[Rfam]
RNA: U7 small nuclear RNA
RNA sequence: GACAAUUUGCUCUUUUAGUAUUUCUCCAGUAGGUUUCCUCCAGGAGAAAGCCUCC
Numbered sequence: 001g002a003c004a005a006u007u008u009g010c011u012c013u014u015u016u017a018g019u020a021u022u023u024c025u026c027c028a029g030u031a032g033g034u035u036u037c038c039u040c041c042a043g044g045a046g047a048a049a050g051c052c053u054c055c
Stems, first nucleotide, its partner, number of pairs: 032052005038046003